[Rfam]
Nucleotides: 086
Base pairs, nucleotide, nucleotide: 001086002085003084004083005082006081007080009078012027013026014025015024016023017022028046029045030044031043032042033041048061049060050059051058052057063077064076065075066074
Number, partner (000 for none) and nucleotide at each position: 001086g002085c003084a004083c005082c006081a007080a008000u009078g010000a011000g012027c013026a014025g015024a016023g017022g018000u019000g020000g021000u022017c023016c024015u025014c026013u027012g028046c029045u030044g031043c032042g033041a034000c035000u036000u037000c038000a039000a040000a041033u042032c043031g044030c045029a046028g047000g048061g049060u050059g051058c052057c053000g054000g055000g056000a057052g058051g059050c060049a061048c062000a063077g064076a065075c066074g067000u068000u069000c070000a071000a072000u073000u074066c075065g076064u077063c078009c079000u080007u081006u082005g083004g084003u085002g086001c